[Rfam]
RNA sequence: AUCGCUAAUCCUAAUUCUUGGGACCCUAUCAGUAUUGCCUCUGCUGUCCACUAUGUUCAGAGUAGUGCAAUAUUGCUAAUAGGGUUUCAGGUUUUAGGUUGU
Numbered sequence: 001a002u003c004g005c006u007a008a009u010c011c012u013a014a015u016u017c018u019u020g021g022g023a024c025c026c027u028a029u030c031a032g033u034a035u036u037g038c039c040u041c042u043g044c045u046g047u048c049c050a051c052u053a054u055g056u057u058c059a060g061a062g063u064a065g066u067g068c069a070a071u072a073u074u075g076c077u078a079a080u081a082g083g084g085u086u087u088c089a090g091g092u093u094u095u096a097g098g099u100u101g102u
Stems, first nucleotide, its partner, number of pairs: 020088010030075009041065005
This 102-nucleotide RNA sequence from Labeo rohita belongs to the Rfam family "mir-454 microRNA precursor family". The family has 20 seed sequences and 696 matches in Rfam 15.1. A reference for the family is Chen et al. (2005), "The developmental miRNA profiles of zebrafish as determined by small RNA cloning", Genes Dev.